[Rfam]
RNA sequence: GCAGCAGGUCGGUUUGUCGCUUCCCGUCAGGCGGGAAGAGGAAAGUCCGGGCAACACAGAGCGCCAUACUUCCUAACGGGAAGCUGUCCGUGAGGGCAGAUAAGCGUAACAGAAAACGACCGUCCCGGCCAGUGUCGGGGUAAGGGUGAAAAGGUGAGGUAAGAGCUCACCGGACGUUGCAGCAAUGCAGUGUGCCGUACGCAUUAUGGGUUGCAAGGCCAUGUAUAUCGGAUACUUAGGGUUGCUCGCCCGAUGCCGAGGGGUAGGCCGCUAAAGGAGAGUGGUGACACUUUUCCGUAGAUAAAUGACAAACAUCCGAUUCGUCGGUAUACAGAACCCGGCUUACAGACCGGCUGCUUUU
Numbered sequence: 001g002c003a004g005c006a007g008g009u010c011g012g013u014u015u016g017u018c019g020c021u022u023c024c025c026g027u028c029a030g031g032c033g034g035g036a037a038g039a040g041g042a043a044a045g046u047c048c049g050g051g052c053a054a055c056a057c058a059g060a061g062c063g064c065c066a067u068a069c070u071u072c073c074u075a076a077c078g079g080g081a082a083g084c085u086g087u088c089c090g091u092g093a094g095g096g097c098a099g100a101u102a103a104g105c106g107u108a109a110c111a112g113a114a115a116a117c118g119a120c121c122g123u124c125c126c127g128g129c130c131a132g133u134g135u136c137g138g139g140g141u142a143a144g145g146g147u148g149a150a151a152a153g154g155u156g157a158g159g160u161a162a163g164a165g166c167u168c169a170c171c172g173g174a175c176g177u178u179g180c181a182g183c184a185a186u187g188c189a190g191u192g193u194g195c196c197g198u199a200c201g202c203a204u205u206a207u208g209g210g211u212u213g214c215a216a217g218g219c220c221a222u223g224u225a226u227a228u229c230g231g232a233u234a235c236u237u238a239g240g241g242u243u244g245c246u247c248g249c250c251c252g253a254u255g256c257c258g259a260g261g262g263g264u265a266g267g268c269c270g271c272u273a274a275a276g277g278a279g280a281g282u283g284g285u286g287a288c289a290c291u292u293u294u295c296c297g298u299a300g301a302u303a304a305a306u307g308a309c310a311a312a313c314a315u316c317c318g319a320u321u322c323g324u325c326g327g328u329a330u331a332c333a334g335a336a337c338c339c340g341g342c343u344u345a346c347a348g349a350c351c352g353g354c355u356g357c358u359u360u361u
Stems, first nucleotide, its partner, number of pairs: 001357005007351004011346001012313007020038008043344003047341005052213004059247004064209005069083005084099001086097004100204002104202005120145002122141008153171006173195001174193008217269004228259004239251004276295008

Rfam assigns this 361-nucleotide sequence from Proteiniphilum saccharofermentans to the family "Bacterial RNase P class A". The organism belongs to Proteiniphilum, within Bacteria. The family's consensus secondary structure is taken from published work. The match comes from Rfam's covariance-model search (250 bits). Gene Ontology terms of the family: tRNA processing, dimeric ribonuclease P complex and ribonuclease P activity.